[Rfam]
The family of this 93-nucleotide RNA from Colobus angolensis is "Small nucleolar RNA SNORD91 family". Rfam links the family to the GO terms RNA processing and nucleolus. It scores 89 bits against the family's covariance model. The literature on the family includes a 2001 paper in EMBO J by Huttenhofer et al., "RNomics: an experimental approach that identifies 201 candidates for novel, small, non-messenger RNAs in mouse". The base pairs follow the family's consensus structure. It is annotated as a C/D-box small nucleolar RNA.

RNA sequence: UAGAGAAGUCAGUGAUGGUUUUAUUCGUAUUGUCUGAACCUGUCUGAAACAUUGGUGAUGCAAUCUCUGGGUGAUUCUGAGACUUCUCUAAGU
Numbered sequence: 001u002a003g004a005g006a007a008g009u010c011a012g013u014g015a016u017g018g019u020u021u022u023a024u025u026c027g028u029a030u031u032g033u034c035u036g037a038a039c040c041u042g043u044c045u046g047a048a049a050c051a052u053u054g055g056u057g058a059u060g061c062a063a064u065c066u067c068u069g070g071g072u073g074a075u076u077c078u079g080a081g082a083c084u085u086c087u088c089u090a091a092g093u
Stems, first nucleotide, its partner, number of pairs: 004087007